This 62-nucleotide sequence from Pseudoduganella ginsengisoli belongs to the Rfam family "Betaproteobacteria toxic small RNA". Rfam's curators write: Overexpression in amino aid rich medium attenuates growth, suggesting role in repressing amino acid intake and metabolism. The literature on the family includes a 2017 paper in Sci Rep by Sass et al., "Identification of small RNAs abundant in Burkholderia cenocepacia biofilms reveal putative regulators with a potential role in carbon and iron metabolism". Pairs were carried over by alignment from the consensus structure, which was predicted with WAR.
RNA sequence: UGUCUCCUCCAUUUCUUCCCAAAGAAUUGGAUUCAGCCCGCUCCCUGAGCGGGCUUUUUUUU
Numbered sequence: 001u002g003u004c005u006c007c008u009c010c011a012u013u014u015c016u017u018c019c020c021a022a023a024g025a026a027u028u029g030g031a032u033u034c035a036g037c038c039c040g041c042u043c044c045c046u047g048a049g050c051g052g053g054c055u056u057u058u059u060u061u062u
Stems, first nucleotide, its partner, number of pairs: 008031004013026003035055008